[Rfam]
RNA sequence: CUACUCCCUCCGUCCCAUAAUGUAAGACGUUUUUGCAAGUUAAAUUUGCUUACAAAAACGUCUUACAUUGUGGGACGGAGGGAGUAU
Number, nucleotide and partner (000 for none) at each position: 001c000002u000003a085004c084005u083006c000007c081008c080009u079010c078011c077012g000013u075014c074015c073016c072017a071018u000019a069020a068021u067022g066023u065024a064025a063026g062027a061028c060029g059030u058031u057032u056033u055034u054035g053036c000037a051038a050039g049040u048041u000042a000043a000044a000045u000046u000047u000048g040049c039050u038051u037052a000053c035054a034055a033056a032057a031058a030059c029060g028061u027062c026063u025064u024065a023066c022067a021068u020069u019070g000071u017072g016073g015074g014075a013076c000077g011078g010079a009080g008081g007082g000083a005084g004085u003086a000087u000
RNA: MIR1120/MIR1122 microRNA precursor family